Record summary: Shown here is a 178-nucleotide RNA sequence from Halobacillus yeomjeoni, a member of the family "Lysine riboswitch aptamer". NCBI's taxonomy places the organism under Bacteria, Bacillati, Bacillota, Bacilli, Halobacillus.

[Rfam]
RNA sequence: GGUAAGGAUAGAGGUGCAAAUACAUGAGUACACAAGAGGAGGAGAAUGGGCUCCAUAGAUUCUUGUGGAAAGGGGAAUUUGCCGAAGCGGAUGAAAUCUCAUUUUUCUGAAGCUGGUUCUGAAGCUGAAUAAGUUCAGGACUGUCAUAUAGGAAACUAUAUGGAGGGCUAUCGUACGC
Numbered sequence: 001g002g003u004a005a006g007g008a009u010a011g012a013g014g015u016g017c018a019a020a021u022a023c024a025u026g027a028g029u030a031c032a033c034a035a036g037a038g039g040a041g042g043a044g045a046a047u048g049g050g051c052u053c054c055a056u057a058g059a060u061u062c063u064u065g066u067g068g069a070a071a072g073g074g075g076a077a078u079u080u081g082c083c084g085a086a087g088c089g090g091a092u093g094a095a096a097u098c099u100c101a102u103u104u105u106u107c108u109g110a111a112g113c114u115g116g117u118u119c120u121g122a123a124g125c126u127g128a129a130u131a132a133g134u135u136c137a138g139g140a141c142u143g144u145c146a147u148a149u150a151g152g153a154a155a156c157u158a159u160a161u162g163g164a165g166g167g168c169u170a171u172c173g174u175a176c177g178c
Base pairs, nucleotide, nucleotide: 007172008171009170010169011168016082017081018080019079020078021077023074031067032066033065034064035063036062037061038060086114087113088112093107094106095105096104115142116141117140118139119138120137121136123135124134125133126132144163145162146161147160148159149158150157